RNA sequence: AACAUACUUUCUUAGAUCUGGUCUUUGUAGGUGAGAAUCUUGAACCAGAUUCUAUGUGUAAAUUUUCAUUUCUUCUUGUUUCAGUGAAAGAAACAUCCAGCCCCCUUUUGGGUUGUAUAGUCAAAGGUGCUAGCACAUGUGUCACUAGUACGUGAGAUGAAGCAGCUGCAUGCUGGCCCUGGGCCCGAGAAGAAUGACCUGCAAUUAUGCUGCAAUUCUUUAGCACAAAGUUUUGACUGGUGUGCAGACAUU
Number, nucleotide and partner (000 for none) at each position: 001a000002a153003c152004a000005u150006a149007c148008u147009u000010u000011c141012u000013u139014a138015g000016a000017u000018c000019u135020g134021g000022u127023c126024u125025u124026u123027g122028u099029a000030g097031g096032u095033g094034a000035g000036a000037a000038u091039c090040u089041u088042g000043a000044a085045c084046c000047a000048g000049a081050u000051u000052c078053u000054a076055u000056g000057u000058g072059u000060a071061a070062a069063u068064u000065u000066u000067c000068a063069u062070u061071u060072c058073u000074u000075c000076u054077u000078g052079u000080u000081u049082c000083a000084g045085u044086g000087a000088a041089a040090g039091a038092a000093a000094c033095a032096u031097c030098c000099a028100g116101c115102c000103c000104c112105c111106u000107u000108u000109u000110g000111g105112g104113u000114u000115g101116u100117a000118u000119a000120g000121u000122c027123a026124a025125a024126g023127g022128u000129g000130c000131u000132a000133g000134c020135a019136c000137a000138u014139g013140u000141g011142u000143c000144a000145c000146u000147a008148g007149u006150a005151c000152g003153u002154g000155a000156g000157a000158u000159g000160a000161a000162g000163c000164a000165g000166c247167u246168g245169c244170a243171u000172g000173c240174u000175g238176g237177c000178c235179c000180u000181g000182g000183g000184c000185c230186c000187g226188a000189g224190a000191a000192g000193a000194a000195u222196g221197a220198c000199c000200u000201g213202c212203a211204a000205u000206u000207a000208u000209g000210c000211u203212g202213c201214a000215a000216u000217u000218c000219u000220u197221u196222a195223g000224c189225a000226c187227a000228a000229a000230g185231u000232u000233u000234u000235g178236a000237c176238u175239g000240g173241u000242g000243u170244g169245c168246a167247g166248a000249c000250a000251u000252u000

The record is a 252-nucleotide sequence from Sorex araneus, which matches "Small nucleolar RNA SNORA53" in Rfam.
Gene Ontology terms of the family: nucleolus and RNA processing.
About the family: The snoRNA ACA53 belongs to the H/ACA family of pseudouridylation guide snoRNAs.
Lineage of the source: Eukaryota > Bilateria > Amniota > Mammalia > Sorex.